[Rfam]
The record is an 84-nucleotide RNA sequence from Cebus imitator, which matches "mir-548 microRNA precursor family" in Rfam. Rfam links the family to the GO terms miRNA-mediated post-transcriptional gene silencing and RISC complex. A search with the family's covariance model found it, with a score of 91 bits. The base pairs follow the family's consensus structure, which was predicted with WAR. NCBI's taxonomy places the organism under Eukaryota, Metazoa, Deuterostomia, Platyrrhini, Cebus.

RNA sequence: UAUUAGGUUGGCGCAAAGGUAAUUGUGGCUUUUGCCAUCAAAAGUAAUGGUAAAAACCACAAUUACUUUUGUGCCAACCUAAUA
Numbered sequence: 001u002a003u004u005a006g007g008u009u010g011g012c013g014c015a016a017a018g019g020u021a022a023u024u025g026u027g028g029c030u031u032u033u034g035c036c037a038u039c040a041a042a043a044g045u046a047a048u049g050g051u052a053a054a055a056a057c058c059a060c061a062a063u064u065a066c067u068u069u070u071g072u073g074c075c076a077a078c079c080u081a082a083u084a
Stems, first nucleotide, its partner, number of pairs: 001084028030055009040045001